The family of this 132-nucleotide RNA sequence from Jaculus jaculus is "Small nucleolar RNA SNORA68". The family has 26 seed sequences and 1,079 matches in Rfam 15.1. The match comes from Rfam's covariance-model search (114 bits). By type it is an H/ACA-box small nucleolar RNA. Lineage of the source: Eukaryota > Mammalia > Eutheria > Myomorpha > Jaculus. From the family's description: U68 is a member of the H/ACA class of small nucleolar RNAs (snoRNAs) which act as guides in the the modification of uridines to pseudouridines. Rfam links the family to the GO terms RNA processing and nucleolus.
RNA sequence: CUCGCACCCCAACCCAAGGACUGCUGCUCCUUGUAGCUGCGGUUUAAACAGAGGUGCGGACAGCAAAUGGACCAUGUCGCCUUCAGAGGGCUAUGUUAUGCUCCCCGAAGUGAAUCUGUAGGUCCCACAAUC
Numbered sequence: 001c002u003c004g005c006a007c008c009c010c011a012a013c014c015c016a017a018g019g020a021c022u023g024c025u026g027c028u029c030c031u032u033g034u035a036g037c038u039g040c041g042g043u044u045u046a047a048a049c050a051g052a053g054g055u056g057c058g059g060a061c062a063g064c065a066a067a068u069g070g071a072c073c074a075u076g077u078c079g080c081c082u083u084c085a086g087a088g089g090g091c092u093a094u095g096u097u098a099u100g101c102u103c104c105c106c107g108a109a110g111u112g113a114a115u116c117u118g119u120a121g122g123u124c125c126c127a128c129a130a131u132c
Stems, first nucleotide, its partner, number of pairs: 002059007019044006026037003069125005081110004086105001088103004